[Rfam]
RNA sequence: GCGAUGAGCUGAGUUGUGUAAGUCGUCGGACACUCCUUUAUUGGAAAUGCACGAUGUGGCGUGCAGUCCGCCGCCUCAAUACGCAAAAAGACACCUGGCAACAGGUGUC
Numbered sequence: 001g002c003g004a005u006g007a008g009c010u011g012a013g014u015u016g017u018g019u020a021a022g023u024c025g026u027c028g029g030a031c032a033c034u035c036c037u038u039u040a041u042u043g044g045a046a047a048u049g050c051a052c053g054a055u056g057u058g059g060c061g062u063g064c065a066g067u068c069c070g071c072c073g074c075c076u077c078a079a080u081a082c083g084c085a086a087a088a089a090g091a092c093a094c095c096u097g098g099c100a101a102c103a104g105g106u107g108u109c
Base pairs, nucleotide, nucleotide: 014079015078016077018075024073025072027070028069029068030067031066034043048065049064051062052061053060090109091108092107093106094105095104096103097102
Rfam assigns this 109-nucleotide sequence from Mesobacillus zeae to the family "BsrF". NCBI's taxonomy places the organism under Bacteria, Bacillota, Bacilli, Bacillaceae, Mesobacillus. It scores 96 bits against the family's covariance model. On this family, see Saito et al., Gene 2008: "Novel small RNA-encoding genes in the intergenic regions of Bacillus subtilis". The base pairs follow the family's consensus structure, which was predicted with WAR.